[Rfam]
RNA sequence: CGCGGUCCUCGACAGUGGCUUCCGGAAUCUCACGACCAUCGUGUCCGAGCGUCCGGAGGCUUCGAUCGAAGACCGGG
Numbered sequence: 001c002g003c004g005g006u007c008c009u010c011g012a013c014a015g016u017g018g019c020u021u022c023c024g025g026a027a028u029c030u031c032a033c034g035a036c037c038a039u040c041g042u043g044u045c046c047g048a049g050c051g052u053c054c055g056g057a058g059g060c061u062u063c064g065a066u067c068g069a070a071g072a073c074c075g076g077g
Base pairs, nucleotide, nucleotide: 001077003075004074005073006072007071009069010068011067012066017061018060019059020058021057022056023055024054025053026052029051
Shown here is a 77-nucleotide sequence from Citricoccus muralis, a member of the family "Actino-pnp RNA". The base pairs follow the family's consensus structure, which is taken from published work. NCBI's taxonomy places the organism under Bacteria, Bacillati, Actinomycetes, Micrococcales, Citricoccus. Rfam classes the family as a cis-regulatory element.